[Rfam]
RNA sequence: GUCGAGCUCAGUAGCGAGUGCUUGUGACCCAUGUGGGGACAAUAAGAUGGUGGUACACUGGCCCGGGCCCGUAGGUCGGUUCUGUGUGGCGUAUUCUGGACUGCCCAGUCCAAGUCGAGAGUGAUCCGUAUGUGUUGAGCGAAGGCUUGGCAUAUGCUGUUCCUAAAGUGGAGGGCAAUGCGUGAGGCUGGUUUCACAGAGCAGCGAUUACCUCCCUCUCUUGGCAGUGGACGGAUCACAGCUCAAAGCCACUCAUGAUCCAACAUGGCCUUGUGGCUUGUACCCAGCUGAACCCCCAUCUUU
Dot-bracket structure: (((((((.(........).))))....(((....))))))...(((((((.((..((((((..(((.((...(((((((.((...(((.(......(((.(((.((.(((((.((((((((.((.(.(((((((((((((....))))))))))))).).))(....).(((((......(((....(((......)))....)))....)))))..))))))))..)))))))....))).)))..).)))....)).)).....)))))...)).)))..).))).))..)).))))))).
RNA: Plant signal recognition particle RNA